[Rfam]
RNA sequence: AAAUAUUUGCUCUUUUAGUAUUUGUCCAGAAGGGUCCUGAAAUUUUCAGGACUCCACA
Dot-bracket structure: ...............................(((((((((.....)))))).)))...
Source information:
Rfam assigns this 58-nucleotide RNA from Bagarius yarrelli to the family "U7 small nuclear RNA". The family's consensus secondary structure was predicted with PFOLD. About the family: Animal histone pre-mRNAs are spliced by a different mechanism than nuclear pre-mRNAs and self-splicing introns.